[Rfam]
RNA sequence: GCCGAUAUCAUUUUUGUGACCUGCAGCUUGUACCCUCGCCGCCCAGUUGCAUAGUCACAAAAGUGAUCAUCGGA
Numbered sequence: 001g002c003c004g005a006u007a008u009c010a011u012u013u014u015u016g017u018g019a020c021c022u023g024c025a026g027c028u029u030g031u032a033c034c035c036u037c038g039c040c041g042c043c044c045a046g047u048u049g050c051a052u053a054g055u056c057a058c059a060a061a062a063g064u065g066a067u068c069a070u071c072g073g074a
Stems, first nucleotide, its partner, number of pairs: 002073005008066013022051007